[Rfam]
RNA sequence: AAUGGCUGUCACUCUUUCCUUAACUCAUGCCGCUGUGCAUUCUCUUCUUUCGCAACAGGGUGGGUUGAGUACAAAGUGCCGGUCUA
Numbered sequence: 001a002a003u004g005g006c007u008g009u010c011a012c013u014c015u016u017u018c019c020u021u022a023a024c025u026c027a028u029g030c031c032g033c034u035g036u037g038c039a040u041u042c043u044c045u046u047c048u049u050u051c052g053c054a055a056c057a058g059g060g061u062g063g064g065u066u067g068a069g070u071a072c073a074a075a076g077u078g079c080c081g082g083u084c085u086a
Stems, first nucleotide, its partner, number of pairs: 004084005010078004019069010034054004
A member of the RNA family "mir-1426 microRNA precursor family" from Ornithorhynchus anatinus, 86 nucleotides long. Its family is annotated with RISC complex and miRNA-mediated post-transcriptional gene silencing in the Gene Ontology. Pairs were carried over by alignment from the consensus structure, which was predicted with RNAalifold.